The family of this 122-nucleotide sequence from Maylandia zebra is "Small nucleolar RNA U6-53/MBII-28".
The source organism's lineage runs through Eukaryota, Metazoa, Cichlidae, Pseudocrenilabrinae and Maylandia zebra complex.
A reference for the family is Huttenhofer et al. (2001), "RNomics: an experimental approach that identifies 201 candidates for novel, small, non-messenger RNAs in mouse", EMBO J.
Pairs were carried over by alignment from the consensus structure.
Rfam classes the family as a C/D-box small nucleolar RNA.
It scores 70 bits against the family's covariance model.
The family has 25 seed sequences and 780 matches in Rfam 15.1.
RNA sequence: CUCCUGUGAUGAUUAAGCCAUGCUAAUACUGAUGCACUAGUCAGAUGCAUUUUGCACUGCCUGGGUGUAAGUGAGUUCAACUUGUCUUCUCACACUGAUGGCAUCAGUGUGUGCUGAGGAGA
Dot-bracket structure: ((((.....................................(((............)))..........................................................)))).